A member of the RNA family "Bacterial RNase P class A" from Desulfomicrobium baculatum, 357 nucleotides long. The match comes from Rfam's covariance-model search (321 bits). The family's consensus secondary structure is taken from published work. The organism belongs to Desulfomicrobium baculatum, within Bacteria. Ribonuclease P (RNase P) is a ubiquitous endoribonuclease, found in archaea, bacteria and eukarya as well as chloroplasts and mitochondria.

[Rfam]
RNA sequence: GGAGCCGGACAGGCUGUCGCUGCCGAUCGCAAGAUUGGGAGAGGAAAGUCCGGACACCACAGGGCAGGAUGCUGGAUAACGUCCAGCGGGGGCGACCCCGGGACAGUGCCACAGAAACAAACCGCCCGGGCUUCAUGUCCGGGUAAGGGUGAAAAGGUGGGGUAAGAGCCCACCAGUUGUCGCGGUGACGCGGCAAGCUAGGUAAACCCCAUCCGGUGCAAGACCAAAUAGGAAGGUGGCCGGCCCGGUCACGACCCUUCGGGUAGGUUGCUGGAGACGGCGGGUAACCGCCGCCCUAGAGGAAUGACAGCCGCCCGGCAACGGGCACAGAAUCCGGCUUAUCGUCCGGCUCCGUAU
Numbered sequence: 001g002g003a004g005c006c007g008g009a010c011a012g013g014c015u016g017u018c019g020c021u022g023c024c025g026a027u028c029g030c031a032a033g034a035u036u037g038g039g040a041g042a043g044g045a046a047a048g049u050c051c052g053g054a055c056a057c058c059a060c061a062g063g064g065c066a067g068g069a070u071g072c073u074g075g076a077u078a079a080c081g082u083c084c085a086g087c088g089g090g091g092g093c094g095a096c097c098c099c100g101g102g103a104c105a106g107u108g109c110c111a112c113a114g115a116a117a118c119a120a121a122c123c124g125c126c127c128g129g130g131c132u133u134c135a136u137g138u139c140c141g142g143g144u145a146a147g148g149g150u151g152a153a154a155a156g157g158u159g160g161g162g163u164a165a166g167a168g169c170c171c172a173c174c175a176g177u178u179g180u181c182g183c184g185g186u187g188a189c190g191c192g193g194c195a196a197g198c199u200a201g202g203u204a205a206a207c208c209c210c211a212u213c214c215g216g217u218g219c220a221a222g223a224c225c226a227a228a229u230a231g232g233a234a235g236g237u238g239g240c241c242g243g244c245c246c247g248g249u250c251a252c253g254a255c256c257c258u259u260c261g262g263g264u265a266g267g268u269u270g271c272u273g274g275a276g277a278c279g280g281c282g283g284g285u286a287a288c289c290g291c292c293g294c295c296c297u298a299g300a301g302g303a304a305u306g307a308c309a310g311c312c313g314c315c316c317g318g319c320a321a322c323g324g325g326c327a328c329a330g331a332a333u334c335c336g337g338c339u340u341a342u343c344g345u346c347c348g349g350c351u352c353c354g355u356a357u
Stems, first nucleotide, its partner, number of pairs: 001353010011342001012312007020041002023038006046340003050337005055218004062246004067214005072086005087100005101209002106207002108203003122148002124144008156174006176198001177196008222269004232260005237251005276295001278293006